[Rfam]
RNA: Soft rot Enterobacteriaceae Rev 39 5'UTR
RNA sequence: AAAAGUUGUCAUAAGCUGGCUAACUGUGAUAACUCUGUAGGCAUUACUUCGAACAAGCGAAAAACCGAAACCGAAAUGAAAGCCCUUCUACGAGUGAUUAGCCUAGUCGUGAUUAGCGUGGUGGUGAUUAUUAUCACACCUUGCGGGGCUUCGCUUGGAGAAAGAAAGGCUUAGAAAUCAAGUCUGAAUUCACAAAAAACCCCCGCACCGAAAGGUCCGGGGGUUUUUUUUCGACCAGACGUAAUGUCAGCGAAUGAGAGAGGAAUAAAGAAUGAACAGUAGCAUAAAAUGCUGUUGUUCCCAGCGAGAG
Numbered sequence: 001a002a003a004a005g006u007u008g009u010c011a012u013a014a015g016c017u018g019g020c021u022a023a024c025u026g027u028g029a030u031a032a033c034u035c036u037g038u039a040g041g042c043a044u045u046a047c048u049u050c051g052a053a054c055a056a057g058c059g060a061a062a063a064a065c066c067g068a069a070a071c072c073g074a075a076a077u078g079a080a081a082g083c084c085c086u087u088c089u090a091c092g093a094g095u096g097a098u099u100a101g102c103c104u105a106g107u108c109g110u111g112a113u114u115a116g117c118g119u120g121g122u123g124g125u126g127a128u129u130a131u132u133a134u135c136a137c138a139c140c141u142u143g144c145g146g147g148g149c150u151u152c153g154c155u156u157g158g159a160g161a162a163a164g165a166a167a168g169g170c171u172u173a174g175a176a177a178u179c180a181a182g183u184c185u186g187a188a189u190u191c192a193c194a195a196a197a198a199a200c201c202c203c204c205g206c207a208c209c210g211a212a213a214g215g216u217c218c219g220g221g222g223g224u225u226u227u228u229u230u231u232c233g234a235c236c237a238g239a240c241g242u243a244a245u246g247u248c249a250g251c252g253a254a255u256g257a258g259a260g261a262g263g264a265a266u267a268a269a270g271a272a273u274g275a276a277c278a279g280u281a282g283c284a285u286a287a288a289a290u291g292c293u294g295u296u297g298u299u300c301c302c303a304g305c306g307a308g309a310g
Base pairs, nucleotide, nucleotide: 005033006032007031008030009029010028011027012026038074040072041071044068045067048064049060050059084263085262086261087259088258089257091252092251097245098244099243100242101240103238104237106235108118109117110116120140121139122138123137126135127134128133141160142159144157145156146155147154162190163189168185169184171182172181194229195228196227197226198225199224200223201222202221203220204219205218207216208215209214264296265295266294267293270290272285273284274283
Dot-bracket structure: ....((((((((.............))))))))....(.((..((..(((........))...)..))..)).).........((((((.((....(((((.((.(.(((.....))).((((..(((....))).))))((.((((......)))).)).((....((.((........)).))...))...((((((((((((.(((....))).)))))))))))).....).)).).)))).....))....))).)))((((..(.(((........)))....)..))))..............